[Rfam]
RNA sequence: UCCUCUCGAUACAACAAACAUCUGUGUCCGGCGAUCCUGGCGUGCCUCCGGGCACUGUCGGUCGAUUGCCGCGACAGUUCGACGCCAUAUAGAGCCCUGACACUUUCCUGAGGACGUUCUGGUCGACAGAUUUGAGAUCAAAUGCGGCGGCGUGCGGUCUUGAGCUCCUCGUGAGCUCGGCUUCACGCUGUCCCGGCGCUAUAUUCCUGAUCGUUUCCUGAGCCCGUCGGGCGUUGAAGGUUGGGAAAAACCAUAGCUUUGCCUACAUUU
Numbered sequence: 001u002c003c004u005c006u007c008g009a010u011a012c013a014a015c016a017a018a019c020a021u022c023u024g025u026g027u028c029c030g031g032c033g034a035u036c037c038u039g040g041c042g043u044g045c046c047u048c049c050g051g052g053c054a055c056u057g058u059c060g061g062u063c064g065a066u067u068g069c070c071g072c073g074a075c076a077g078u079u080c081g082a083c084g085c086c087a088u089a090u091a092g093a094g095c096c097c098u099g100a101c102a103c104u105u106u107c108c109u110g111a112g113g114a115c116g117u118u119c120u121g122g123u124c125g126a127c128a129g130a131u132u133u134g135a136g137a138u139c140a141a142a143u144g145c146g147g148c149g150g151c152g153u154g155c156g157g158u159c160u161u162g163a164g165c166u167c168c169u170c171g172u173g174a175g176c177u178c179g180g181c182u183u184c185a186c187g188c189u190g191u192c193c194c195g196g197c198g199c200u201a202u203a204u205u206c207c208u209g210a211u212c213g214u215u216u217c218c219u220g221a222g223c224c225c226g227u228c229g230g231g232c233g234u235u236g237a238a239g240g241u242u243g244g245g246a247a248a249a250a251c252c253a254u255a256g257c258u259u260u261g262c263c264u265a266c267a268u269u270u
Stems, first nucleotide, its partner, number of pairs: 018133001020131006026075003029071003033067004037061005042055005083125002086122001091118002094115001096113001149189006156182004162178006195263003198257005211246002217240003222232004

Source information: A member of the RNA family "A. fumigatus sRNA Afu_309" from Cryoendolithus antarcticus, 270 nucleotides long. It is annotated as a small RNA. Pairs were carried over by alignment from the consensus structure, which was predicted with WAR. It scores 135 bits against the family's covariance model. On this family, see Jochl et al., Nucleic Acids Res 2008: "Small ncRNA transcriptome analysis from Aspergillus fumigatus suggests a novel mechanism for regulation of protein synthesis".